This 74-nucleotide RNA from Novosphingobium sp. FSW06-99 belongs to the Rfam family "Makes More Granules Regulator RNA (mmgR)". About the family: SuhB later renamed mmgR (makes more granules regulator) was a putative non-coding RNA found multiple times in the Agrobacterium tumefaciens genome and related alpha-proteobacteria. Other non-coding RNAs uncovered in the same analysis include: speF, ybhL, metA, and serC.Several studies inSinorhizobium meliloti showed that suhB element is indeed a non-coding RNA:firstly it was detected on Northern blot and called Sm8RNA, secondly in an RNAseq study referred to as SmelC689.The mutant phenotype's (strain lacking the small RNA) cytoplasm contains higher content of polyhydroxybutyrate (PBH)storage granules than wild type strain. The sRNA is required to limit the PBH intracellular accumulation when the nitrogen-fixing Sinorhizobium meliloti is under condition of surplus carbon in relation to nitrogen. It has been renamed to mmgR. Further study confirmed that mmgR fine-tunes the regulation of PBH storage.Northern blot confirmed the expression of the sRNA in other rhizobia species. MmgR homologues were found in most alpha-proteobacteria.

[Rfam]
RNA sequence: GGGACAGGCCUUUCAGGCAUCCUCUCCCAAACUUUCCAAGGCCGGCGGAAACGCCGGCCUUUUUUUUGUAAUCA
Numbered sequence: 001g002g003g004a005c006a007g008g009c010c011u012u013u014c015a016g017g018c019a020u021c022c023u024c025u026c027c028c029a030a031a032c033u034u035u036c037c038a039a040g041g042c043c044g045g046c047g048g049a050a051a052c053g054c055c056g057g058c059c060u061u062u063u064u065u066u067u068g069u070a071a072u073c074a
Base pairs, nucleotide, nucleotide: 008018009017010016011015040059041058042057043056044055045054046053047052